[Rfam]
The family of this 96-nucleotide RNA sequence from Tuber borchii is "Small nucleolar RNA Z13/snr52". By type it is a C/D-box small nucleolar RNA.
RNA sequence: CUUUCGAUAAGGAAGAAUAAUCGGAUGUGAAGAGAUUUUACCAUACAAGAGCGCAAAACCCGUGUAGAUAUUUCCGUUGCCUUCCUCCCAAGGAAU
Numbered sequence: 001c002u003u004u005c006g007a008u009a010a011g012g013a014a015g016a017a018u019a020a021u022c023g024g025a026u027g028u029g030a031a032g033a034g035a036u037u038u039u040a041c042c043a044u045a046c047a048a049g050a051g052c053g054c055a056a057a058a059c060c061c062g063u064g065u066a067g068a069u070a071u072u073u074c075c076g077u078u079g080c081c082u083u084c085c086u087c088c089c090a091a092g093g094a095a096u
Base pairs, nucleotide, nucleotide: 003095004094005093022076023075024074025073
Dot-bracket structure: ..(((................((((...............................................))))................))).
The base pairs follow the family's consensus structure, which was predicted with PFOLD.